[Rfam]
RNA sequence: CGUGUGGUGCUGAGCAGGUUAAUCCUGGCACAGAGAGCGACACGGCCUUUACUGAGGU
Numbered sequence: 001c002g003u004g005u006g007g008u009g010c011u012g013a014g015c016a017g018g019u020u021a022a023u024c025c026u027g028g029c030a031c032a033g034a035g036a037g038c039g040a041c042a043c044g045g046c047c048u049u050u051a052c053u054g055a056g057g058u
Base pairs, nucleotide, nucleotide: 001044002043003042004041005040007038008037010033011032012031014029015028

This 58-nucleotide RNA from Paramixta manurensis belongs to the Rfam family "L31-Gammaproteobacteria ribosomal protein leader". On this family, see Eckert and Weinberg, BMC Microbiol 2020: "Discovery of 20 novel ribosomal leader candidates in bacteria and archaea". The family's RNA type in Rfam is cis-regulatory leader. The source organism's lineage runs through Bacteria, Pseudomonadati, Gammaproteobacteria, Erwiniaceae and Paramixta.